[Rfam]
RNA sequence: CCGGUUGUUCCAUCAACCGUUCCCUAUCCGGACAUGCGAGGCUGGCAACGGCCUGGUGUGAAGCUCCGGAGACAACGUAGCCACCGAGUCAUCGGUACGUGCGGCCGCGAGGCCAAGCGGAAACUGCCAGCACUGAGGCGGUAAGGAGC
Numbered sequence: 001c002c003g004g005u006u007g008u009u010c011c012a013u014c015a016a017c018c019g020u021u022c023c024c025u026a027u028c029c030g031g032a033c034a035u036g037c038g039a040g041g042c043u044g045g046c047a048a049c050g051g052c053c054u055g056g057u058g059u060g061a062a063g064c065u066c067c068g069g070a071g072a073c074a075a076c077g078u079a080g081c082c083a084c085c086g087a088g089u090c091a092u093c094g095g096u097a098c099g100u101g102c103g104g105c106c107g108c109g110a111g112g113c114c115a116a117g118c119g120g121a122a123a124c125u126g127c128c129a130g131c132a133c134u135g136a137g138g139c140g141g142u143a144a145g146g147a148g149c
Base pairs, nucleotide, nucleotide: 002019003018004017005016006015007014028069029068030067031066032065033060034059035058036057037056039054040053041052042051043050044049083096084095085094086093087092098119099118100117105112106111123142124141125140126139127138128137
The family of this 149-nucleotide RNA from Thiomonas sp. X19 is "Group II catalytic intron D1-D4-7".
Rfam 15.1 lists 1,296 matches to the family in 705 species.
Rfam's curators write: Group II introns are found in rRNA, tRNA and mRNA of organelles in fungi, plants and protists, and also in mRNA in bacteria.
For this family Rfam cites "Group II introns: structure and catalytic versatility of large natural ribozymes" (Lehmann and Schmidt, Crit Rev Biochem Mol Biol, 2003).
It scores 122 bits against the family's covariance model.